Shown here is a 112-nucleotide sequence from Pipistrellus kuhlii, a member of the family "Small nucleolar RNA SNORD90". About the family: snoRNA HBII-295 belongs to the family of C/D snoRNAs. It is the human orthologue of the mouse MBII-295 and has no identified RNA target. For this family Rfam cites "RNomics: an experimental approach that identifies 201 candidates for novel, small, non-messenger RNAs in mouse" (Huttenhofer et al., EMBO J, 2001). The organism belongs to Pipistrellus, within Eukaryota. The match comes from Rfam's covariance-model search (110 bits).
RNA sequence: UAAUGAGUUUUCUGAGUGUCUAAUGAUGAAUUUCAUAGGGCAGAUUCUGAGGUGAAAAAUCGAAUUCACCAUUGAUUCAUGUACUAUGGAGUCUGAAGACACUUGAAAACCU
Number, nucleotide and partner (000 for none) at each position: 001u000002a000003a000004u000005g000006a000007g000008u000009u000010u000011u000012c000013u105014g104015a103016g102017u101018g100019u099020c098021u097022a000023a000024u000025g000026a000027u000028g000029a000030a092031u091032u090033u089034c088035a087036u086037a082038g000039g080040g000041c000042a000043g076044a000045u000046u075047c074048u000049g072050a000051g070052g069053u068054g067055a066056a065057a000058a000059a000060u000061c000062g000063a000064a000065u056066u055067c054068a053069c052070c051071a000072u049073u000074g047075a046076u043077u000078c000079a000080u039081g000082u037083a000084c000085u000086a036087u035088g034089g033090a032091g031092u030093c000094u000095g000096a000097a021098g020099a019100c018101a017102c016103u015104u014105g013106a000107a000108a000109a000110c000111c000112u000